[Rfam]
RNA sequence: AGCAAUGAUGAAUCGCCCUUUGAAUUAGAUGUAGAUCACUCCAUGUCCCUGCGUUUCAGGGAGAACCUACUUGGGGUCCUACAUUGGAAUGAUAUAUAUGGGCUUUAACUGAGCU
Numbered sequence: 001a002g003c004a005a006u007g008a009u010g011a012a013u014c015g016c017c018c019u020u021u022g023a024a025u026u027a028g029a030u031g032u033a034g035a036u037c038a039c040u041c042c043a044u045g046u047c048c049c050u051g052c053g054u055u056u057c058a059g060g061g062a063g064a065a066c067c068u069a070c071u072u073g074g075g076g077u078c079c080u081a082c083a084u085u086g087g088a089a090u091g092a093u094a095u096a097u098a099u100g101g102g103c104u105u106u107a108a109c110u111g112a113g114c115u
Stems, first nucleotide, its partner, number of pairs: 001115003047061005
The family of this 115-nucleotide RNA sequence from Zea mays is "Small nucleolar RNA Z278". The family's consensus secondary structure was predicted with PFOLD. By type it is a C/D-box small nucleolar RNA. From the family's description: snoZ278 is a C/D box small nucleolar RNA. Its methylation guide targets have not been reported.